[Rfam]
RNA sequence: CCUGCGGCUAGACGAAAAGACCCCGUGGAGCUUUACUGUAUCUUAGUCUUGAAUUAUGGAAGUAAAUGCGUAGAAUAAGCGGGACCCUUUGAAGCACAGCUUUUGGGCUGUGCUGAGGGGCAAUGUGAAAUACCGCUCUUUUAGUUCUGUGGUUCUAACUCCUAUGUUUGAAUCGACAGGGAGAACAUGGCUAAGUGGGCAGUUUAACUGGGGCGGUUGCCUCCUAAAUAGUAACGGAGGCGUUCAAAGGUACCCUCAGGACCAAUAGAAAUGGUCUAUAGAGCGCAAGUGUAGAAGGGUGCUUAACUGCAAGACAAACAAGUCGAGCAGAUGCGAAAGCAGGAACUAGUGAUCCGGCGGUUUAGUGUGGAAUUGCCGUCGCUCAACGAAUAAAAGCUACCCCGGGGAUAACAGGCUUAUUUUCUCCGAGAGUCCAUAUCGACGAGAAAGUUUGGCACCUCGAUGUCGGCUCAUCCCAUCCUGGGGCUGGAGUAGGUCCCAAGGGUUUGGCUGUUCGCCAAUUAAAGGGGUACGCGAGCUGGGUUCAGUACGUCGUGAGACAGUACGGUCUCUAUCUACCGUGGGCGCA
Numbered sequence: 001c002c003u004g005c006g007g008c009u010a011g012a013c014g015a016a017a018a019g020a021c022c023c024c025g026u027g028g029a030g031c032u033u034u035a036c037u038g039u040a041u042c043u044u045a046g047u048c049u050u051g052a053a054u055u056a057u058g059g060a061a062g063u064a065a066a067u068g069c070g071u072a073g074a075a076u077a078a079g080c081g082g083g084a085c086c087c088u089u090u091g092a093a094g095c096a097c098a099g100c101u102u103u104u105g106g107g108c109u110g111u112g113c114u115g116a117g118g119g120g121c122a123a124u125g126u127g128a129a130a131u132a133c134c135g136c137u138c139u140u141u142u143a144g145u146u147c148u149g150u151g152g153u154u155c156u157a158a159c160u161c162c163u164a165u166g167u168u169u170g171a172a173u174c175g176a177c178a179g180g181g182a183g184a185a186c187a188u189g190g191c192u193a194a195g196u197g198g199g200c201a202g203u204u205u206a207a208c209u210g211g212g213g214c215g216g217u218u219g220c221c222u223c224c225u226a227a228a229u230a231g232u233a234a235c236g237g238a239g240g241c242g243u244u245c246a247a248a249g250g251u252a253c254c255c256u257c258a259g260g261a262c263c264a265a266u267a268g269a270a271a272u273g274g275u276c277u278a279u280a281g282a283g284c285g286c287a288a289g290u291g292u293a294g295a296a297g298g299g300u301g302c303u304u305a306a307c308u309g310c311a312a313g314a315c316a317a318a319c320a321a322g323u324c325g326a327g328c329a330g331a332u333g334c335g336a337a338a339g340c341a342g343g344a345a346c347u348a349g350u351g352a353u354c355c356g357g358c359g360g361u362u363u364a365g366u367g368u369g370g371a372a373u374u375g376c377c378g379u380c381g382c383u384c385a386a387c388g389a390a391u392a393a394a395a396g397c398u399a400c401c402c403c404g405g406g407g408a409u410a411a412c413a414g415g416c417u418u419a420u421u422u423u424c425u426c427c428g429a430g431a432g433u434c435c436a437u438a439u440c441g442a443c444g445a446g447a448a449a450g451u452u453u454g455g456c457a458c459c460u461c462g463a464u465g466u467c468g469g470c471u472c473a474u475c476c477c478a479u480c481c482u483g484g485g486g487c488u489g490g491a492g493u494a495g496g497u498c499c500c501a502a503g504g505g506u507u508u509g510g511c512u513g514u515u516c517g518c519c520a521a522u523u524a525a526a527g528g529g530g531u532a533c534g535c536g537a538g539c540u541g542g543g544u545u546c547a548g549u550a551c552g553u554c555g556u557g558a559g560a561c562a563g564u565a566c567g568g569u570c571u572c573u574a575u576c577u578a579c580c581g582u583g584g585g586c587g588c589a
Stems, first nucleotide, its partner, number of pairs: 001585007010577003014572002022406004027402002029398005035203004042195007051155011063143004068138001078137005085119003094113008159183003163180001165178004206218004219241006242387001244344002250302006256282002259277006283292002307330004313324003332341003355381007364373001415456003419453001420450007430440002467542001468540004472534001473531005480505002483500006507521005548566004552561003
Dot-bracket structure: (((((((..(((.((......((((.(((((((.((((...(((((((..(((((((((((.((((.(.........(((((..(((......((((((((....))))))))...))).............)))))).)))).)))))))))))...(((.(.((((......)))).)))).....)))))))....))))..((((.....))))((((((...........))))))(.((....((((((((.((((((.......))))))...))((......))....))))))....((((..(((......)))..)))).(((....))).))..........(((((((..(........).))))))).....)......)))))..))))))........(((.((((((((...((.......))...)))))))..))))..........(((((((((((..((.((((((......))))))...)).(((((.....))))).....)))))..)..)))).).....(((((((....))).))))....))..))).)))))))....